[Rfam]
RNA: c-di-AMP riboswitch aptamer (ydaO/yuaA leader)
RNA sequence: CGGGGGUCACCGCCGAGUCGGCUCCGCUGGGAGCCGAGCCGGGGAACCAGGUGCUUCAUGGGGUGAAUCCGCCCCCUGACGGGUGCCGUGUCGUCUGCGCUCUUGCGUGGAUGGCCGCUGCGCGUCGGGUGGUGGUAGGGCGACUUCCGGCCCGAAUCCGUCAGCUAACCCGGUAGGCGGCGAGAGGAAGGUUC
Numbered sequence: 001c002g003g004g005g006g007u008c009a010c011c012g013c014c015g016a017g018u019c020g021g022c023u024c025c026g027c028u029g030g031g032a033g034c035c036g037a038g039c040c041g042g043g044g045a046a047c048c049a050g051g052u053g054c055u056u057c058a059u060g061g062g063g064u065g066a067a068u069c070c071g072c073c074c075c076c077u078g079a080c081g082g083g084u085g086c087c088g089u090g091u092c093g094u095c096u097g098c099g100c101u102c103u104u105g106c107g108u109g110g111a112u113g114g115c116c117g118c119u120g121c122g123c124g125u126c127g128g129g130u131g132g133u134g135g136u137a138g139g140g141c142g143a144c145u146u147c148c149g150g151c152c153c154g155a156a157u158c159c160g161u162c163a164g165c166u167a168a169c170c171c172g173g174u175a176g177g178c179g180g181c182g183a184g185a186g187g188a189a190g191g192u193u194c
Stems, first nucleotide, its partner, number of pairs: 011179004018037008038174006048060002061159003069135004138153004